[Rfam]
RNA: Makes More Granules Regulator RNA (mmgR)
Organism: Lichenifustis flavocetrariae
RNA sequence: CGCUGUAUGCCUUCUUGGCGUUCCUCCCUAAACUUGAGCCGCCUCCGGGCGGCUUUUUUUUGGCCGCA
Numbered sequence: 001c002g003c004u005g006u007a008u009g010c011c012u013u014c015u016u017g018g019c020g021u022u023c024c025u026c027c028c029u030a031a032a033c034u035u036g037a038g039c040c041g042c043c044u045c046c047g048g049g050c051g052g053c054u055u056u057u058u059u060u061u062g063g064c065c066g067c068a
Stems, first nucleotide, its partner, number of pairs: 008020004038053006